RNA sequence: GGAUUAAUGAUAACUUCACACAUGUUUCUCAUUGGAAUAUGAACAAACUGAGUGACAAAAUCAUUUGUCAGCUGAGAUCC
Numbered sequence: 001g002g003a004u005u006a007a008u009g010a011u012a013a014c015u016u017c018a019c020a021c022a023u024g025u026u027u028c029u030c031a032u033u034g035g036a037a038u039a040u041g042a043a044c045a046a047a048c049u050g051a052g053u054g055a056c057a058a059a060a061u062c063a064u065u066u067g068u069c070a071g072c073u074g075a076g077a078u079c080c
Stems, first nucleotide, its partner, number of pairs: 001080005026054001028052003032046003
RNA: Small nucleolar RNA SNORD116